Shown here is an 84-nucleotide sequence, a member of the family "c-di-GMP-II-GAG riboswitch aptamer". The family's consensus secondary structure is taken from published work. The family is grouped with related families in Rfam's "c-di-GMP_II riboswitch clan".

[Rfam]
RNA sequence: UGCAACGCGGUAGGCGAUUACACGCGGUCCAUACCCCGGCCGCCGGGACCGCGCCGAGCGACUGGCGAGACCGACCCGCGGGCA
Number, nucleotide and partner (000 for none) at each position: 001u084002g083003c082004a000005a000006c000007g079008c078009g077010g076011u000012a000013g000014g059015c058016g000017a000018u000019u000020a000021c000022a000023c053024g052025c051026g050027g049028u048029c047030c000031a000032u000033a000034c000035c000036c000037c000038g072039g071040c000041c067042g066043c065044c064045g000046g000047g029048a028049c027050c026051g025052c024053g023054c000055c000056g000057a000058g015059c014060g000061a000062c000063u000064g044065g043066c042067g041068a000069g000070a000071c039072c038073g000074a000075c000076c010077c009078g008079c007080g000081g000082g003083c002084a001